[Rfam]
Small nucleolar RNA snoR27: an 89-nucleotide sequence from Lathyrus oleraceus. The family's consensus secondary structure was predicted with WAR. Gene Ontology terms of the family: RNA processing and nucleolus. A search with the family's covariance model found it, with a score of 77 bits. The source organism's lineage runs through Eukaryota, Streptophytina, Euphyllophyta, fabids and Lathyrus.

RNA sequence: AAUGGAUCUAUGAUGUUAUUUUAAACUGCGUUAUCUAUCUGAAACCUCAAUAGAGGAACUGAGGAUGAAGUAUUACGCUGAGAUCCAUU
Numbered sequence: 001a002a003u004g005g006a007u008c009u010a011u012g013a014u015g016u017u018a019u020u021u022u023a024a025a026c027u028g029c030g031u032u033a034u035c036u037a038u039c040u041g042a043a044a045c046c047u048c049a050a051u052a053g054a055g056g057a058a059c060u061g062a063g064g065a066u067g068a069a070g071u072a073u074u075a076c077g078c079u080g081a082g083a084u085c086c087a088u089u
Base pairs, nucleotide, nucleotide: 001089002088003087004086005085006084007083